Description:
Rfam assigns this 62-nucleotide RNA from Heterocephalus glaber to the family "Gag/pol translational readthrough site". Pairs were carried over by alignment from the consensus structure, which is taken from published work. Gene Ontology term of the family: viral translational readthrough.
RNA sequence: CAGGAGGGACGGGGCUCGGCGCCCCUCCCCGAGCCCAGGGUAACCCUUAAAGUGGAGGGGAA
Numbered sequence: 001c002a003g004g005a006g007g008g009a010c011g012g013g014g015c016u017c018g019g020c021g022c023c024c025c026u027c028c029c030c031g032a033g034c035c036c037a038g039g040g041u042a043a044c045c046c047u048u049a050a051a052g053u054g055g056a057g058g059g060g061a062a
Base pairs, nucleotide, nucleotide: 008041010039012036013035014034015033016031018029019028022060023059024058025057026056027055

Rfam classes the family as a cis-regulatory element.